[Rfam]
RNA: Betaproteobacteria toxic small RNA
Organism: Caballeronia concitans
RNA sequence: UGUCUCCUCCAUGUCCACCGAUAUGGAUUCAGCCCGCUCGGUCGAGCGGGCUUUUUCUU
Numbered sequence: 001u002g003u004c005u006c007c008u009c010c011a012u013g014u015c016c017a018c019c020g021a022u023a024u025g026g027a028u029u030c031a032g033c034c035c036g037c038u039c040g041g042u043c044g045a046g047c048g049g050g051c052u053u054u055u056u057c058u059u
Base pairs, nucleotide, nucleotide: 008027009026010025011024012023013022014021015020031052032051033050034049035048036047037046038045